[Rfam]
RNA sequence: GAGGCCUAUGAUGAUCAACCAAUAUAUUGCCUACAUUGCUUGAUUCAGUUGGAUGAUAAGAAUCUCCUUUUAUUCUGAGGCCAUC
Numbered sequence: 001g002a003g004g005c006c007u008a009u010g011a012u013g014a015u016c017a018a019c020c021a022a023u024a025u026a027u028u029g030c031c032u033a034c035a036u037u038g039c040u041u042g043a044u045u046c047a048g049u050u051g052g053a054u055g056a057u058a059a060g061a062a063u064c065u066c067c068u069u070u071u072a073u074u075c076u077g078a079g080g081c082c083a084u085c
Stems, first nucleotide, its partner, number of pairs: 001084001003082004
RNA: Small nucleolar RNA SNORD34
Organism: Elaeis guineensis